[Rfam]
RNA: terC RNA
RNA sequence: GUAGCGGACCGGGCCCCUCUGACCAGACCAUUUUUCUGGUGAUGUCGGACCGCAUCG
Numbered sequence: 001g002u003a004g005c006g007g008a009c010c011g012g013g014c015c016c017c018u019c020u021g022a023c024c025a026g027a028c029c030a031u032u033u034u035u036c037u038g039g040u041g042a043u044g045u046c047g048g049a050c051c052g053c054a055u056c057g
Stems, first nucleotide, its partner, number of pairs: 006051002009048004022040006